Background
The family of this 76-nucleotide RNA from Alligator mississippiensis is "Mammalian CPEB3 ribozyme". Lineage of the source: Eukaryota > Teleostomi > Sarcopterygii > Sauropsida > Alligator. Its family is annotated with RNA nuclease activity in the Gene Ontology.
[Rfam]
RNA sequence: UGUGGUGGUGCAGGUGCUAAGGCGUAGUACUCAUGGUGCGGCCCUGUCAGAUUCCAGCAAAUCUGCAAAUUCUGCU
Number, nucleotide and partner (000 for none) at each position: 001u000002g000003u000004g000005g000006u000007g000008g000009u000010g000011c000012a000013g044014g043015u000016g042017c041018u040019a000020a000021g076022g075023c074024g072025u000026a070027g039028u038029a037030c000031u000032c000033a000034u000035g000036g000037u029038g028039c027040g018041g017042c016043c014044c013045u000046g000047u000048c065049a064050g063051a062052u061053u060054c000055c000056a000057g000058c000059a000060a053061a052062u051063c050064u049065g048066c000067a000068a000069a000070u026071u000072c024073u000074g023075c022076u021